Glycine riboswitch aptamer: a 102-nucleotide RNA sequence from Anaerosalibacter bizertensis.
RNA sequence: AUGAAAAAUGCGGGAGAGACCAAAAUUUGGCGCCGAAGGAGUAAGUUAUAGGUUUUGCCACUCUAUAAUGAAACUCUCAGGCAAAAGAAUCGCAUUUGGACA
Numbered sequence: 001a002u003g004a005a006a007a008a009u010g011c012g013g014g015a016g017a018g019a020c021c022a023a024a025a026u027u028u029g030g031c032g033c034c035g036a037a038g039g040a041g042u043a044a045g046u047u048a049u050a051g052g053u054u055u056u057g058c059c060a061c062u063c064u065a066u067a068a069u070g071a072a073a074c075u076c077u078c079a080g081g082c083a084a085a086a087g088a089a090u091c092g093c094a095u096u097u098g099g100a101c102a
Base pairs, nucleotide, nucleotide: 006097007096008095009094010093011092012091013090020030021029022028023027032082033081034080035078036077039076040075041074045069046068047067048066049065050064051063052062